[Rfam]
RNA sequence: UGUGCGGUGCCUGGCAGCAGAUCAGGUGGCGGCGCAGCUUAAAACGAGGU
Numbered sequence: 001u002g003u004g005c006g007g008u009g010c011c012u013g014g015c016a017g018c019a020g021a022u023c024a025g026g027u028g029g030c031g032g033c034g035c036a037g038c039u040u041a042a043a044a045c046g047a048g049g050u
Base pairs, nucleotide, nucleotide: 001036002035003034004033005032007030008029011025012024013023014022015020

Rfam assigns this 50-nucleotide sequence from Marinospirillum alkaliphilum to the family "L31-Gammaproteobacteria ribosomal protein leader". The base pairs follow the family's consensus structure, which is taken from published work.